[Rfam]
RNA sequence: UGGAGUCAGGUGAUGAUCUGAAGCAUAGUUCAAAUGAGAAUAUAUGAUUAUACAUUUGAAAGUCUUUCGCUCCUAUCUGAUGACUCUG
Numbered sequence: 001u002g003g004a005g006u007c008a009g010g011u012g013a014u015g016a017u018c019u020g021a022a023g024c025a026u027a028g029u030u031c032a033a034a035u036g037a038g039a040a041u042a043u044a045u046g047a048u049u050a051u052a053c054a055u056u057u058g059a060a061a062g063u064c065u066u067u068c069g070c071u072c073c074u075a076u077c078u079g080a081u082g083a084c085u086c087u088g
Stems, first nucleotide, its partner, number of pairs: 004085005
RNA: Small nucleolar RNA snR60/Z15/Z230/Z193/J17